[Rfam]
RNA: mir-3015 microRNA precursor family
RNA sequence: GUUCUUACAAUUACCAGUUAAAGUUAAUCAAAACUUUACCAGACAUUGUAAGAACGG
Numbered sequence: 001g002u003u004c005u006u007a008c009a010a011u012u013a014c015c016a017g018u019u020a021a022a023g024u025u026a027a028u029c030a031a032a033a034c035u036u037u038a039c040c041a042g043a044c045a046u047u048g049u050a051a052g053a054a055c056g057g
Stems, first nucleotide, its partner, number of pairs: 001055011014042001017039002020036002024031002